[Rfam]
RNA sequence: GCCGGGAAGAGGAAGAAUGAGAGGGUCCAAGAGUAAUAUGAAUGGGAACAUCCAGGAAAGCGUGAGCUUUCUAGAUUUCCUCUCCUUACAAUGGAGAGAUCUUGCUCUAUGUUUUCCCAAUGCCUCCCAUUCCUAUUGUUCUUGGGUGCUCCUUCCCCUUCCUUUUGGCU
Numbered sequence: 001g002c003c004g005g006g007a008a009g010a011g012g013a014a015g016a017a018u019g020a021g022a023g024g025g026u027c028c029a030a031g032a033g034u035a036a037u038a039u040g041a042a043u044g045g046g047a048a049c050a051u052c053c054a055g056g057a058a059a060g061c062g063u064g065a066g067c068u069u070u071c072u073a074g075a076u077u078u079c080c081u082c083u084c085c086u087u088a089c090a091a092u093g094g095a096g097a098g099a100u101c102u103u104g105c106u107c108u109a110u111g112u113u114u115u116c117c118c119a120a121u122g123c124c125u126c127c128c129a130u131u132c133c134u135a136u137u138g139u140u141c142u143u144g145g146g147u148g149c150u151c152c153u154u155c156c157c158c159u160u161c162c163u164u165u166u167g168g169c170u
Stems, first nucleotide, its partner, number of pairs: 009161004015155003021151003026146010037135002040132008049122003055117010
About this RNA
The family of this 170-nucleotide sequence from Triticum aestivum is "MIR2118 microRNA precursor family". Rfam links the family to the GO terms miRNA-mediated post-transcriptional gene silencing and RISC complex. The match comes from Rfam's covariance-model search (132 bits).